[Rfam]
RNA: Bacterial RNase P class A
Organism: Phormidium tenue
RNA sequence: GGAGGUAGCGCAGGUGGUUGCGGAUUGGCGAUCGCCAGUCUGAGGAAAGUCCGGGCUCCCGAAAGACCAGACUUGCUGGGUAACGCCCAGUGCGGGCAACCGUGAGGAGAGUGCCACAGAAACAUACCGCCGAUGGCUUCGGGAUUUUUUUCAGGAGCACAGGUAAGGGUGCAAGGGUGCGGUAAGAGCGCACCAGCAGCAUCGAGAGGUGCUGGCUCGGUAAACCCCGGUCGGGUGCAAGGUCGAGGGGCAAGGUUGGUCUUUUUCCAGCCCCGCUGUUACGUACCGCAAGAGGCGUUUGGCAACAGGCGUCCCAGAUAGAUAACCGCCCCCCUGGCAACAGGGGAACAGAACCCGGCUUAUGUCUACCUCCCUCC
Numbered sequence: 001g002g003a004g005g006u007a008g009c010g011c012a013g014g015u016g017g018u019u020g021c022g023g024a025u026u027g028g029c030g031a032u033c034g035c036c037a038g039u040c041u042g043a044g045g046a047a048a049g050u051c052c053g054g055g056c057u058c059c060c061g062a063a064a065g066a067c068c069a070g071a072c073u074u075g076c077u078g079g080g081u082a083a084c085g086c087c088c089a090g091u092g093c094g095g096g097c098a099a100c101c102g103u104g105a106g107g108a109g110a111g112u113g114c115c116a117c118a119g120a121a122a123c124a125u126a127c128c129g130c131c132g133a134u135g136g137c138u139u140c141g142g143g144a145u146u147u148u149u150u151u152c153a154g155g156a157g158c159a160c161a162g163g164u165a166a167g168g169g170u171g172c173a174a175g176g177g178u179g180c181g182g183u184a185a186g187a188g189c190g191c192a193c194c195a196g197c198a199g200c201a202u203c204g205a206g207a208g209g210u211g212c213u214g215g216c217u218c219g220g221u222a223a224a225c226c227c228c229g230g231u232c233g234g235g236u237g238c239a240a241g242g243u244c245g246a247g248g249g250g251c252a253a254g255g256u257u258g259g260u261c262u263u264u265u266u267c268c269a270g271c272c273c274c275g276c277u278g279u280u281a282c283g284u285a286c287c288g289c290a291a292g293a294g295g296c297g298u299u300u301g302g303c304a305a306c307a308g309g310c311g312u313c314c315c316a317g318a319u320a321g322a323u324a325a326c327c328g329c330c331c332c333c334c335u336g337g338c339a340a341c342a343g344g345g346g347a348a349c350a351g352a353a354c355c356c357g358g359c360u361u362a363u364g365u366c367u368a369c370c371u372c373c374c375u376c377c
Base pairs, nucleotide, nucleotide: 001373002372003371004370005369006368007367008366010365011364012363013330014329015328016327017326018325019324021042022041023040024039025038026037027036028035029034047361048360049359051358052357053356054355055354056237058235059234065265066264070232071231072230074229075228076090077089078088079087080086091105092103093102094101095100106227107226111225112224113221114220115219127168128167129164130163131162134159135158176194177193178192179191180190181189196216197214198213199212200211201210202209203208241287242286243285245276247274248273249272250271256270257269258268259267294313295312296311297310298309299308300307301306
Dot-bracket structure: ((((((((.((((((((((.(((((((((....)))))))))....[[[.[[[[[(.((.....[[...(((.(((((((.....)))))(((((....)))).)((...(((((...........(((((..((......................))..)))..)).......((((((.......)))))).((((((((....))))))).)..)))..))))))))).)).)...(((.(.((((.....((((....]].)))))))).)........)))......((((((((....))))))))..........))))))).......................]]]]]]]].)))))))))))....